A member of the RNA family "Glutamine riboswitch aptamer (glnA leader)" from Synechococcus elongatus, 61 nucleotides long. It is one of the family's seed sequences. Its family is annotated with glutamine binding in the Gene Ontology. A reference for the family is Ames and Breaker (2011), "Bacterial aptamers that selectively bind glutamine", RNA Biol.
[Rfam]
RNA sequence: CGUUGACCCAGGAAACUGGGCGGAAGUAAGGUCCAUUGCACUCCGGGCCUGAAGCAACGCG
Dot-bracket structure: (((((.(((((....)))))..[.....((((((..........))))))....)))))].